Rfam assigns this 151-nucleotide RNA from Paracoccus sphaerophysae to the family "Ruegeria cis2 sRNA". NCBI's taxonomy places the organism under Bacteria, Pseudomonadati, Pseudomonadota, Paracoccaceae, Paracoccus.
Nucleotides: 151
Stems, first nucleotide, its partner, number of pairs: 003034002008030002014024002037057001039055002041052003067150002070082004086147009098134002101130002103127004108122001110119003
Number, partner (000 for none) and nucleotide at each position: 001000g002000c003034u004033g005000g006000a007000a008030u009029u010000g011000u012000g013000c014024g015023g016000g017000g018000u019000g020000u021000a022000g023015u024014u025000c026000a027000c028000g029009a030008a031000c032000a033004c034003g035000a036000a037057g038000c039055c040054g041052c042051g043050g044000g045000u046000c047000u048000g049000g050043u051042c052041g053000a054040u055039g056000a057037u058000g059000u060000g061000g062000a063000a064000c065000a066000g067150c068149g069000g070082g071081u072080u073079c074000c075000a076000g077000u078000c079073g080072a081071a082070c083000a084000u085000c086147g087146c088145c089144a090143g091142c092141a093140u094139g095000a096000a097000g098134u099133u100000g101130g102129g103127c104126a105125g106124g107000u108122u109000g110119u111118u112117g113000g114000c115000g116000g117112c118111g119110a120000a121000c122108a123000u124106c125105u126104u127103g128000c129102c130101c131000g132000a133099g134098g135000c136000g137000a138000c139094c140093a141092u142091g143090u144089u145088g146087g147086c148000g149068c150067g151000g
It is annotated as a small RNA. The base pairs follow the family's consensus structure, which was predicted with RNAfold.